The family of this 191-nucleotide RNA from Agrilus planipennis is "R2 RNA element". Rfam links the family to the GO term regulation of reverse transcription. NCBI's taxonomy places the organism under Eukaryota, Metazoa, Arthropoda, Agrilinae, Agrilus. On this family, see Luan et al., Cell 1993: "Reverse transcription of R2Bm RNA is primed by a nick at the chromosomal target site: a mechanism for non-LTR retrotransposition". About the family: This family represents the 3' UTR region of the R2 retrotransposable element. This family is known to interact with the R2-encoded reverse transcriptase in a reaction known as target primed reverse transcription (TPRT).
RNA sequence: AUAAAACAAGGUAAACGUGCCGGUCGUUGUCCUCGUCACCUCGGCUGAAGAGGACCUUAAUUGGUCCUAGAACGGCCUGAGGUAGAGGGGUUUUAGUCGGUAGGUCCGAGGACUUCUUCCUCGGGAAUUCGACACUACCCAGUCGUACGGACGGCUGGGUGUCUUUUGAAGACUUCCCCUCUUCCACGAAA
Numbered sequence: 001a002u003a004a005a006a007c008a009a010g011g012u013a014a015a016c017g018u019g020c021c022g023g024u025c026g027u028u029g030u031c032c033u034c035g036u037c038a039c040c041u042c043g044g045c046u047g048a049a050g051a052g053g054a055c056c057u058u059a060a061u062u063g064g065u066c067c068u069a070g071a072a073c074g075g076c077c078u079g080a081g082g083u084a085g086a087g088g089g090g091u092u093u094u095a096g097u098c099g100g101u102a103g104g105u106c107c108g109a110g111g112a113c114u115u116c117u118u119c120c121u122c123g124g125g126a127a128u129u130c131g132a133c134a135c136u137a138c139c140c141a142g143u144c145g146u147a148c149g150g151a152c153g154g155c156u157g158g159g160u161g162u163c164u165u166u167u168g169a170a171g172a173c174u175u176c177c178c179c180u181c182u183u184c185c186a187c188g189a190a191a
Base pairs, nucleotide, nucleotide: 029055030054031053032052033051034050061190062189064187065186081185082184084182085181087178088177089176096133097132098131099130100129105125106124107123108122109121110120111119112118135161137160138159139158140157141156